[Rfam]
RNA sequence: UGACGGGGGCCCGCACAAGCGGUGGAGCAUGUGGUUUAAUUCGAAGCAACGCGCAGAACCUUACCAGCUCUUGACAUCUGUCGGACUUCGCAGAGAUGCGUUGGUGCCCGCAAGGGAACGGCAAGACAGGUGCUGCAUGGCUGUCGUCAGCUCGUGUCGUGAGAUGUUGGGUUAAGUCCCGCAACGAGCGCAACCCUCGCCUCUAGUUGCCAGCAUGUUUGGGUGGGCACUCUAGAGGAACUGCCGGUGACAAGCCGGAGGAAGGUGGGGAUGACGUCAAGUCCUCAUGGCCCUUAUGAGCUGGGCUACACACGUGCUACAAUGGCGGUGACAAUGGGAAGCCAGGUCGCGAGGCCGAGCGGAUCCCAAAAAGCCGUCUCAGUUCAGAUUGCACUCUGCAACUCGGGUGCAUGAAGGUGGAAUCGCUAGUAAUCGCGGAUCAGCACGCCGCGGUGAAUACGUUCCCGGGCCUUGUACACACCGCCCGUCACACCAUGGGAGUUGGUUUUACCUUAAGUGUCUAGGCUAACCGCAAGGAGGCCGGUCACCACGGUAGGGUCAGCGACUGGGGUGAAGUCGUAACAAGG
Dot-bracket structure: (((((.(((((((.((..((((((.((((((((((....(.((........)).)........(((((((......(((((((..(..((((....))))..).(.((......)).)))))).))..((.((((..((((((.((...(((((((((....)))..((((......))))..)))))).....((((.(((((((...((..(((......)))))....)))))))..((.(((((.....))))).)).....))))....)).).)))...))))))))....)))))))...)).)))))))).)...((((((......(((..((...(((....)))...))....))).....))))))......(....(((((((........)))))))....).....))))).....(((((((.........)))))))......))...)))))))))).))..(.(..((...((((.(((..((((((((((((....(((.((.((((..((....)).)))))).)))...))))))))))))..))).))))....))...)..).

Overview: Bacterial small subunit ribosomal RNA: a 587-nucleotide part of an RNA from Roseococcus sp. SYP-B2431. A search with the family's covariance model found it, with a score of 1538 bits. A reference for the family is Yusupov et al. (2001), "Crystal structure of the ribosome at 5.5 A resolution", Science.